[Rfam]
The family of this 74-nucleotide RNA is "tRNA". The base pairs follow the family's consensus structure, which is taken from published work. The sequence is in the family's curated seed alignment.
RNA sequence: GGGGUGGUGGCGCAGUUGGCUAGCGCGUAGGUCUCAUAAUCCUGAGGUCGAGAGUUCGAGCCUCUCUCACCCCA
Numbered sequence: 001g002g003g004g005u006g007g008u009g010g011c012g013c014a015g016u017u018g019g020c021u022a023g024c025g026c027g028u029a030g031g032u033c034u035c036a037u038a039a040u041c042c043u044g045a046g047g048u049c050g051a052g053a054g055u056u057c058g059a060g061c062c063u064c065u066c067u068c069a070c071c072c073c074a
Base pairs, nucleotide, nucleotide: 001073002072003071004070005069006068007067010026011025012024013023028044029043030042031041050066051065052064053063054062